[Rfam]
RNA sequence: AGAUAACUGAUUUCCUCUGGUGCUUAGAGCCCCCCCCCCCCACUGCAGCCUUCUAGCACCAUUUGAAAUCGGUUAUAG
Numbered sequence: 001a002g003a004u005a006a007c008u009g010a011u012u013u014c015c016u017c018u019g020g021u022g023c024u025u026a027g028a029g030c031c032c033c034c035c036c037c038c039c040c041c042a043c044u045g046c047a048g049c050c051u052u053c054u055a056g057c058a059c060c061a062u063u064u065g066a067a068a069u070c071g072g073u074u075a076u077a078g
Stems, first nucleotide, its partner, number of pairs: 003076002005073001007072008018061005025055004
RNA: mir-29 microRNA precursor family